Rfam assigns this 270-nucleotide sequence from Molossus molossus to the family "Mason-Pfizer monkey virus packaging signal". The organism belongs to Molossus, within Eukaryota. The match comes from Rfam's covariance-model search (115 bits). The literature on the family includes a 1995 paper in J Virol by Harrison et al., "Secondary structure model of the Mason-Pfizer monkey virus 5' leader sequence: identification of a structural motif common to a variety of retroviruses".

RNA sequence: UGGCGCCCAACGUGGGGCUCGAGCACGGGGGAUCCAGUGAAGGACGCCGUUCGAGUGGCCGCAAAAAGGAAAAGAAAAGAGGGAACGACGUGGGAACCUGCUGCGUCUGCGCCCCUCGGGUAAGUGAACGGCGAUUAUGGGUCAAGCAUUCAUUGAGCCAAGAUAAGACGUUCGUUGAAGGACUAGGAAAGGCUAUAAAGGCACGAGGAGUAAAGGUGAAAAUCAAGCAUUUAUGUCAGUAUUUUGAUUAUGUUAAGGAAGUUUGUCCUU
Number, nucleotide and partner (000 for none) at each position: 001u000002g000003g000004c000005g000006c031007c030008c029009a000010a000011c000012g026013u025014g024015g000016g000017g000018c000019u000020c000021g000022a000023g000024c014025a013026c012027g000028g000029g008030g007031g006032a000033u000034c000035c000036a000037g000038u000039g047040a000041a000042g000043g000044a000045c000046g000047c039048c000049g000050u000051u000052c000053g000054a000055g000056u000057g000058g000059c000060c000061g000062c000063a000064a000065a000066a000067a000068g000069g000070a000071a000072a000073a000074g000075a000076a000077a000078a000079g117080a116081g115082g113083g112084a000085a000086c000087g000088a000089c105090g104091u103092g102093g101094g000095a000096a000097c000098c000099u000100g000101c093102u092103g091104c090105g089106u000107c000108u000109g000110c000111g000112c083113c082114c000115c081116u080117c079118g000119g000120g000121u000122a000123a000124g149125u148126g147127a000128a000129c000130g000131g000132c000133g000134a000135u000136u000137a000138u000139g000140g000141g000142u000143c000144a000145a000146g000147c126148a125149u124150u000151c000152a000153u000154u197155g196156a000157g193158c192159c191160a000161a000162g000163a000164u000165a000166a000167g000168a000169c000170g000171u000172u000173c000174g000175u000176u000177g000178a000179a000180g000181g000182a000183c000184u000185a000186g000187g000188a000189a000190a000191g159192g158193c157194u000195a000196u155197a154198a000199a000200g000201g000202c000203a000204c246205g245206a244207g243208g242209a000210g240211u239212a000213a000214a232215g231216g230217u229218g228219a000220a000221a000222a000223u000224c000225a000226a000227g000228c218229a217230u216231u215232u214233a000234u000235g000236u000237c000238a000239g211240u210241a000242u208243u207244u206245u205246g204247a000248u000249u000250a000251u000252g000253u000254u000255a270256a269257g268258g267259a266260a000261g000262u000263u000264u000265g000266u259267c258268c257269u256270u255